This 77-nucleotide RNA sequence from Pristionchus pacificus belongs to the Rfam family "mir-252 microRNA precursor family". A reference for the family is Li et al. (2009), "Direct sequencing and expression analysis of a large number of miRNAs in Aedes aegypti and a multi-species survey of novel mosquito miRNAs", BMC Genomics.
RNA sequence: UCCGGGUUCUAAGUAGUAGUGCCGCAGGUAACCAACAAUUGAGAGGUUUACCUAUAGCCUUCUGCUUAACACCUUGA
Dot-bracket structure: ((.((((..(((((((.((....(.(((((..................))))).)...)).)))))))..)))).))